[Rfam]
RNA sequence: CUCCCAAAGCCUCUCAAUGAUGCUCAAAUCUGGGGGG
Numbered sequence: 001c002u003c004c005c006a007a008a009g010c011c012u013c014u015c016a017a018u019g020a021u022g023c024u025c026a027a028a029u030c031u032g033g034g035g036g037g
Base pairs, nucleotide, nucleotide: 001036002035003034004033005032006031008024009023010022
A member of the RNA family "abiF RNA", 37 nucleotides long. From the family's description: Actinobacteria, Bacteroidetes, Clostridia, Proteobacteria, one Clostridia phage. It is one of the family's seed sequences. Pairs were carried over by alignment from the consensus structure, which is taken from published work. By type it is a small RNA.